[Rfam]
RNA sequence: AUAAUGAUACUUCCAGAAAAAAUCUGGUCAUAUAUAAUGACGGUGCAAAACCGAUGU
Dot-bracket structure: ...........(((((.......))))((((.....))))(((.......))))...
Rfam assigns this 57-nucleotide RNA from Ruminococcus sp. AM42-11 to the family "pemK RNA". The family's RNA type in Rfam is cis-regulatory element.